RNA sequence: AUUUAAAAUAAAGCGCCAGAACUUAAGUGUACUACUUAAUUAAUAGUACUAUGGUUCAAAAUAAAAGGUGAUUUAAAUUUAUUUUGUAAAUACUAUAGUAAUUUUUUUAAGGAAUUUAACUAGCUAAAGCUAGUUAACUAAGUUCGACUAACCAAAUCAUAGAUUUGGAGUCUCACUUAUCACUUGCCCGAUUACACUGGGUAAGUUCUGCUAACUAAAUCGAAGAUUUAGAGCAUCACUUAAGUUGACGAGGUUGGGGAGUUAUCGAAACUUCGGCGGGUGCCCCACGGUAUUUGCACUACCGUUAACAACUGGCAAAACUUUAAAGCGAUUUAAAGAACAAAUCCAGUUUGGUGUUAAAA
Dot-bracket structure: ...................((((((((.(...............................................................................................................................................................................................................).))))))))........(((((.....((((....))))......)))))(((((.......))))).....(((((......(((((((....)))))))........)))))...........
RNA: glmS glucosamine-6-phosphate activated ribozyme aptamer